[Rfam]
Nucleotides: 218
Stems, first nucleotide, its partner, number of pairs: 015112006022105001026066001031064004035058003069104003127212002130209001132207002141198008154178009
Number, partner (000 for none) and nucleotide at each position: 001000a002000a003000c004000a005000a006000c007000a008000a009000a010000c011000u012000c013000a014000a015112c016111c017110a018109u019108g020107c021000u022105u023000u024000c025000c026066a027000u028000c029000g030000g031064c032063g033062u034061c035058a036057c037056c038000u039000g040000g041000u042000a043000a044000u045000u046000c047000c048000a049000u050000c051000a052000c053000u054000u055000u056037g057036g058035u059000u060000a061034g062033a063032u064031g065000c066026u067000u068000u069104c070103u071102a072000u073000u074000a075000g076000a077000u078000g079000g080000g081000c082000a083000g084000u085000u086000u087000c088000g089000a090000a091000a092000g093000a094000a095000a096000c097000u098000g099000a100000u101000u102071u103070a104069g105022a106000u107020g108019u109018a110017u111016g112015g113000a114000a115000g116000a117000u118000g119000a120000a121000a122000u123000u124000u125000c126000u127212u128211g129000u130209a131000a132207g133206a134000u135000g136000u137000a138000u139000c140000u141198c142197c143196a144195g145194c146193u147192a148191u149000u150000g151000a152000a153000u154178u155177a156176a157175g158174a159173a160172a161171a162170g163000c164000u165000u166000u167000u168000c169000u170162c171161u172160u173159u174158u175157c176156u177155u178154a179000c180000c181000a182000a183000a184000a185000c186000c187000u188000g189000a190000u191148a192147u193146a194145g195144u196143u197142g198141g199000u200000c201000a202000u203000u204000u205000u206133u207132c208000u209130u210000u211128c212127a213000a214000c215000a216000u217000c218000c
Small nucleolar RNA snR31: a 218-nucleotide sequence from Lachancea mirantina. The family's RNA type in Rfam is H/ACA-box small nucleolar RNA. NCBI's taxonomy places the organism under Eukaryota, Fungi, Ascomycota, Saccharomycetaceae, Lachancea. The family's consensus secondary structure was predicted with WAR.